[Rfam]
RNA sequence: GUAUUGCGUUAAGGAUAGCAAUGGCAUCCUUUUUUGAGGAACGAAAAAAAGAUAUAGUGGAUAGCCUGUUAAAAC
Number, nucleotide and partner (000 for none) at each position: 001g000002u000003a000004u000005u000006g000007c000008g000009u000010u000011a000012a067013g066014g065015a000016u063017a062018g000019c000020a000021a058022u057023g000024g000025c000026a053027u052028c051029c000030u000031u000032u048033u047034u046035u045036g000037a000038g000039g000040a000041a000042c000043g000044a000045a035046a034047a033048a032049a000050a000051g028052a027053u026054a000055u000056a000057g022058u021059g000060g000061a000062u017063a016064g000065c014066c013067u012068g000069u000070u000071a000072a000073a000074a000075c000
This 75-nucleotide RNA sequence from Polaribacter sp. Hel1_33_78 belongs to the Rfam family "Flavo-1 RNA". The family's RNA type in Rfam is small RNA. Rfam 15.1 lists 7,497 matches to the family in 411 species.